The record is a 153-nucleotide RNA sequence from Corynebacterium meridianum, which matches "FMN riboswitch aptamer (RFN element)" in Rfam. The RFN element is a highly conserved domain that is found frequently in the 5'-untranslated regions of prokaryotic mRNAs that encode for flavin mononucleotide (FMN) biosynthesis and transport proteins. Pairs were carried over by alignment from the consensus structure, which is taken from published work. NCBI's taxonomy places the organism under Bacteria, Bacillati, Actinomycetes, Mycobacteriales, Corynebacterium.
RNA sequence: CCAUGUUCUCAGGGCGGGGUGGAAGUCCCCACCGGCGGUGACACCUUCACGGUGCAGCCCGCGAGCGCCACCACACGGAUGUCGUGCGGUGGGUCAGCAGAUCCGGUGUGAUUCCGGAGCCGACGGUCAUAGUCCGGAUGAGAGAGAACCUGC
Numbered sequence: 001c002c003a004u005g006u007u008c009u010c011a012g013g014g015c016g017g018g019g020u021g022g023a024a025g026u027c028c029c030c031a032c033c034g035g036c037g038g039u040g041a042c043a044c045c046u047u048c049a050c051g052g053u054g055c056a057g058c059c060c061g062c063g064a065g066c067g068c069c070a071c072c073a074c075a076c077g078g079a080u081g082u083c084g085u086g087c088g089g090u091g092g093g094u095c096a097g098c099a100g101a102u103c104c105g106g107u108g109u110g111a112u113u114c115c116g117g118a119g120c121c122g123a124c125g126g127u128c129a130u131a132g133u134c135c136g137g138a139u140g141a142g143a144g145a146g147a148a149c150c151u152g153c
Base pairs, nucleotide, nucleotide: 003151005149006148007147008146009145010144017029018028019027031133032132033122034121035062036061037060038059057120058119065098066097102118103117104116105115106114124136125135126134